[Rfam]
Annotation
The record is a 61-nucleotide sequence from Molossus molossus, which matches "U7 small nuclear RNA" in Rfam. Rfam describes the family as follows. Animal histone pre-mRNAs are spliced by a different mechanism than nuclear pre-mRNAs and self-splicing introns. This processing involves the U7 snRNP, which contains only one RNA species: U7.
RNA sequence: UAGUGCUUACAGCUCUUUGAAUUUGUCUAGUAGGUCUUCCGGUUUUUACUAGAAGGCCUCC
Numbered sequence: 001u002a003g004u005g006c007u008u009a010c011a012g013c014u015c016u017u018u019g020a021a022u023u024u025g026u027c028u029a030g031u032a033g034g035u036c037u038u039c040c041g042g043u044u045u046u047u048a049c050u051a052g053a054a055g056g057c058c059u060c061c
Stems, first nucleotide, its partner, number of pairs: 033058007041050003